[Rfam]
RNA sequence: UGGAUGUUCAGCGCAGGCUGGCCCGGCCAUCCUGCCCCGACUUUCGCGACGUGCCCGGCACGUCGCUUCCGGCCCCGCCGGACUCUGCCAACCCGCCGGUGAGCAUCACCGGU
Numbered sequence: 001u002g003g004a005u006g007u008u009c010a011g012c013g014c015a016g017g018c019u020g021g022c023c024c025g026g027c028c029a030u031c032c033u034g035c036c037c038c039g040a041c042u043u044u045c046g047c048g049a050c051g052u053g054c055c056c057g058g059c060a061c062g063u064c065g066c067u068u069c070c071g072g073c074c075c076c077g078c079c080g081g082a083c084u085c086u087g088c089c090a091a092c093c094c095g096c097c098g099g100u101g102a103g104c105a106u107c108a109c110c111g112g113u
Stems, first nucleotide, its partner, number of pairs: 010019003021036001023034001025032002046066008069081004095113006
Dot-bracket structure: .........(((....))).(.(.((....)).).).........((((((((.....))))))))..((((.....)))).............((((((.......))))))
A member of the RNA family "Pseudomon-groES RNA" from Geopseudomonas guangdongensis, 113 nucleotides long. The organism belongs to Geopseudomonas, within Bacteria. The match comes from Rfam's covariance-model search (52 bits).